A member of the RNA family "Small nucleolar RNA snoR8a" from Dendrobium catenatum, 94 nucleotides long. NCBI's taxonomy places the organism under Eukaryota, Streptophytina, Mesangiospermae, Asparagales, Dendrobium. The family has 7 seed sequences and 956 matches in Rfam 15.1. Pairs were carried over by alignment from the consensus structure, which was predicted with WAR. For this family Rfam cites "Multiple snoRNA gene clusters from Arabidopsis" (Brown et al., RNA, 2001). Rfam classes the family as a C/D-box small nucleolar RNA.
[Rfam]
RNA sequence: UGUGUUGCAAUGAUUAUAAAAAACUUAUUCUAUCUGACUGUUAUGUGUUUAUUAGCAUGACUAGCUCCUUACCACCCAUAGAAUAUGACCAUCA
Numbered sequence: 001u002g003u004g005u006u007g008c009a010a011u012g013a014u015u016a017u018a019a020a021a022a023a024c025u026u027a028u029u030c031u032a033u034c035u036g037a038c039u040g041u042u043a044u045g046u047g048u049u050u051a052u053u054a055g056c057a058u059g060a061c062u063a064g065c066u067c068c069u070u071a072c073c074a075c076c077c078a079u080a081g082a083a084u085a086u087g088a089c090c091a092u093c094a
Stems, first nucleotide, its partner, number of pairs: 003094002006091002